[Rfam]
RNA sequence: UAUCCUAAUGACACUUGCUACGAACCGAGUGGUCGGAAGUUCGAGCCGAGCGUAGCGAGACAACGUUGCUUUAGCAACGGCCCGAAGGGCGAGGCGCUAGCCGAGUCAUCUUCCUGGGUGCACCA
Numbered sequence: 001u002a003u004c005c006u007a008a009u010g011a012c013a014c015u016u017g018c019u020a021c022g023a024a025c026c027g028a029g030u031g032g033u034c035g036g037a038a039g040u041u042c043g044a045g046c047c048g049a050g051c052g053u054a055g056c057g058a059g060a061c062a063a064c065g066u067u068g069c070u071u072u073a074g075c076a077a078c079g080g081c082c083c084g085a086a087g088g089g090c091g092a093g094g095c096g097c098u099a100g101c102c103g104a105g106u107c108a109u110c111u112u113c114c115u116g117g118g119u120g121c122a123c124c125a
Stems, first nucleotide, its partner, number of pairs: 012116002017110001019108001030091002033089002040086004047057002064079006
RNA: RtT RNA